[Rfam]
RNA sequence: CGGGCUUGAUCGAAUAGUCGGUCGCCGGACAGUCAUGCACAGAUGUUCUCCUGGCGUAUCCUUUUGCUGCAGAUGUUCCCUCCCUCAUCUGCAUGCGAUGCGCCCUCCUGGCCCCGCUCGCCUUACAUGGCAAGCGGGGCUUUUU
Number, nucleotide and partner (000 for none) at each position: 001c000002g000003g000004g000005c000006u000007u000008g000009a000010u000011c000012g000013a000014a000015u000016a000017g000018u000019c000020g000021g000022u000023c000024g000025c000026c000027g000028g000029a000030c000031a000032g000033u000034c000035a000036u000037g000038c000039a000040c000041a000042g000043a000044u000045g000046u000047u000048c000049u000050c000051c000052u000053g104054g103055c102056g101057u100058a099059u098060c097061c000062u000063u000064u000065u000066g000067c000068u000069g092070c091071a090072g089073a088074u087075g086076u000077u000078c000079c000080c000081u000082c000083c000084c000085u000086c075087a074088u073089c072090u071091g070092c069093a000094u000095g000096c000097g060098a059099u058100g057101c056102g055103c054104c053105c000106u000107c000108c000109u000110g000111g140112c139113c138114c137115c136116g135117c134118u133119c000120g000121c130122c129123u000124u000125a000126c000127a000128u000129g122130g121131c000132a000133a118134g117135c116136g115137g114138g113139g112140c111141u000142u000143u000144u000145u000
The record is a 145-nucleotide RNA sequence from Pararhizobium antarcticum, which matches "Rhizobiales sRNA Atu_C7" in Rfam. Lineage of the source: Bacteria > Pseudomonadati > Hyphomicrobiales > Rhizobiaceae > Pararhizobium. By type it is a small RNA. The literature on the family includes a 2012 paper in RNA Biol by Wilms et al., "Deep sequencing uncovers numerous small RNAs on all four replicons of the plant pathogen Agrobacterium tumefaciens". A search with the family's covariance model found it, with a score of 74 bits.